[Rfam]
RNA: Mammalian CPEB3 ribozyme
RNA sequence: AUUGCAAGUCUGAAGCCAUAACAGAAGUAUUCACCAUGCAGCCCUGUCAGAUUCCAAUGAAUCUGCAAAUUCUGCU
Numbered sequence: 001a002u003u004g005c006a007a008g009u010c011u012g013a014a015g016c017c018a019u020a021a022c023a024g025a026a027g028u029a030u031u032c033a034c035c036a037u038g039c040a041g042c043c044c045u046g047u048c049a050g051a052u053u054c055c056a057a058u059g060a061a062u063c064u065g066c067a068a069a070u071u072c073u074g075c076u
Stems, first nucleotide, its partner, number of pairs: 012044001015042002020076001022074005027039003048065007